[Rfam]
RNA sequence: AAUACCAUAUCGGGGCUCUUAGAGUCUCGAAGUGGAAUGAGUACAAUUUAAAUCCCUUAACGAGGAACAAUUGGAGGGCAAGUCUGGUGCCAGCAGCCGCGGUAAUUCCAGCUCCAAU
Numbered sequence: 001a002a003u004a005c006c007a008u009a010u011c012g013g014g015g016c017u018c019u020u021a022g023a024g025u026c027u028c029g030a031a032g033u034g035g036a037a038u039g040a041g042u043a044c045a046a047u048u049u050a051a052a053u054c055c056c057u058u059a060a061c062g063a064g065g066a067a068c069a070a071u072u073g074g075a076g077g078g079c080a081a082g083u084c085u086g087g088u089g090c091c092a093g094c095a096g097c098c099g100c101g102g103u104a105a106u107u108c109c110a111g112c113u114c115c116a117a118u
Base pairs, nucleotide, nucleotide: 006034007033008032010030011029012028013027014026015025016024017023018022041061042060043058045057071117072116073115074114075113076112084111085110086109087108093100094099
The record is a 118-nucleotide part of an RNA from Tortispora caseinolytica, which matches "Eukaryotic small subunit ribosomal RNA" in Rfam. The match comes from Rfam's covariance-model search (1530 bits). Rfam links the family to the GO terms ribosome and structural constituent of ribosome. The organism belongs to Tortispora caseinolytica, within Eukaryota. The base pairs follow the family's consensus structure, which is taken from published work.